[Rfam]
RNA sequence: GCACUGUAUGAGCGUUAUACCGUUGUGGCUCAGGAGCGCGCAUUGAAGGAGAGCGAUGUCAAAUGUGCGAACAGUGC
Numbered sequence: 001g002c003a004c005u006g007u008a009u010g011a012g013c014g015u016u017a018u019a020c021c022g023u024u025g026u027g028g029c030u031c032a033g034g035a036g037c038g039c040g041c042a043u044u045g046a047a048g049g050a051g052a053g054c055g056a057u058g059u060c061a062a063a064u065g066u067g068c069g070a071a072c073a074g075u076g077c
Base pairs, nucleotide, nucleotide: 001077002076003075004074005073006072009032010031011030012029037069038068039067040066041065042064043063044062

This 77-nucleotide sequence from Chroococcidiopsis thermalis belongs to the Rfam family "CyVA-1 RNA". From the family's description: Cyanobacteria, Acidobacteria (1 example), Verrucomicrobia (1 example). The base pairs follow the family's consensus structure, which is taken from published work.